mir-7563 microRNA precursor family: a 76-nucleotide sequence from Ameiurus melas. Gene Ontology terms of the family: miRNA-mediated post-transcriptional gene silencing and RISC complex.

RNA sequence: ACCGCGUACUUAUCUGCUAUAUGGUAGUAGAAAUGCAUCUAUCUCGGCUACUAUAUAGUAGGUAAGUACGCGGUUU
Numbered sequence: 001a002c003c004g005c006g007u008a009c010u011u012a013u014c015u016g017c018u019a020u021a022u023g024g025u026a027g028u029a030g031a032a033a034u035g036c037a038u039c040u041a042u043c044u045c046g047g048c049u050a051c052u053a054u055a056u057a058g059u060a061g062g063u064a065a066g067u068a069c070g071c072g073g074u075u076u
Stems, first nucleotide, its partner, number of pairs: 001074015017058011030045002033042003

The match comes from Rfam's covariance-model search (85 bits). Pairs were carried over by alignment from the consensus structure, which was predicted with RNAalifold.